[Rfam]
RNA sequence: UUCUCCUACAAAGACGUGUGGGUGGUUCUGUCUUUGGACAUGCAAGAACUGGAGAUAAAGAAACAUGGUCUUAGAGAAAUCCGGGGCCAGCUUGCUCCCUGCAGGCUCAAGAUCAAACACCCCACACAG
Numbered sequence: 001u002u003c004u005c006c007u008a009c010a011a012a013g014a015c016g017u018g019u020g021g022g023u024g025g026u027u028c029u030g031u032c033u034u035u036g037g038a039c040a041u042g043c044a045a046g047a048a049c050u051g052g053a054g055a056u057a058a059a060g061a062a063a064c065a066u067g068g069u070c071u072u073a074g075a076g077a078a079a080u081c082c083g084g085g086g087c088c089a090g091c092u093u094g095c096u097c098c099c100u101g102c103a104g105g106c107u108c109a110a111g112a113u114c115a116a117a118c119a120c121c122c123c124a125c126a127c128a129g
Stems, first nucleotide, its partner, number of pairs: 002055005015042005024028001067122002071119001089107007